[Rfam]
RNA: mir-166 microRNA precursor family
Organism: Juglans regia
RNA sequence: GUUGAGGGGAAUGCUGUCUGGUUCGAGACCAUUUGAAGCACAGAUCAUGAUCAGAAUCAUAAAUCAAAUGAUGUCGGACCAGGCUUCAUUCCCCCCAAC
Numbered sequence: 001g002u003u004g005a006g007g008g009g010a011a012u013g014c015u016g017u018c019u020g021g022u023u024c025g026a027g028a029c030c031a032u033u034u035g036a037a038g039c040a041c042a043g044a045u046c047a048u049g050a051u052c053a054g055a056a057u058c059a060u061a062a063a064u065c066a067a068a069u070g071a072u073g074u075c076g077g078a079c080c081a082g083g084c085u086u087c088a089u090u091c092c093c094c095c096c097a098a099c
Stems, first nucleotide, its partner, number of pairs: 001099004006094008016084006024076003